[Rfam]
The record is a 103-nucleotide sequence from Oryza nivara, which matches "MIR2275 microRNA precursor family" in Rfam. The organism belongs to Oryza, within Eukaryota.

RNA sequence: GCACUGAAAGUGAGAGUUGGAUGAAAGCAAACUGACUGAUGAUCAGACAACUCCAGCAGAUCACUGAUCAGCUUGUUUUCCUCCGAUAUGUCACCUUCAGCAA
Numbered sequence: 001g002c003a004c005u006g007a008a009a010g011u012g013a014g015a016g017u018u019g020g021a022u023g024a025a026a027g028c029a030a031a032c033u034g035a036c037u038g039a040u041g042a043u044c045a046g047a048c049a050a051c052u053c054c055a056g057c058a059g060a061u062c063a064c065u066g067a068u069c070a071g072c073u074u075g076u077u078u079u080c081c082u083c084c085g086a087u088a089u090g091u092c093a094c095c096u097u098c099a100g101c102a103a
Stems, first nucleotide, its partner, number of pairs: 004100005011093003016087006023080008032071004